tRNA: a 73-nucleotide RNA from Candidatus Endolissoclinum faulkneri. From the family's description: Transfer RNA (tRNA) molecules are approximately 80 nucleotides in length.
RNA sequence: GGGGGCGUAGCUCAGUUGGGAGAGUGGCGGCUUUGCAUGCCGCAGGUCGUCGGUUCGAUUCCGUCCGCCUCCA
Number, nucleotide and partner (000 for none) at each position: 001g072002g071003g070004g069005g068006c067007g066008u000009a000010g025011c024012u023013c022014a000015g000016u000017u000018g000019g000020g000021a000022g013023a012024g011025u010026g000027g043028c042029g041030g040031c039032u000033u000034u000035g000036c000037a000038u000039g031040c030041c029042g028043c027044a000045g000046g000047u000048c000049g065050u000051c063052g062053g061054u000055u000056c000057g000058a000059u000060u000061c053062c052063g051064u000065c049066c007067g006068c005069c004070u003071c002072c001073a000
About this RNA:
The family's consensus secondary structure is taken from published work.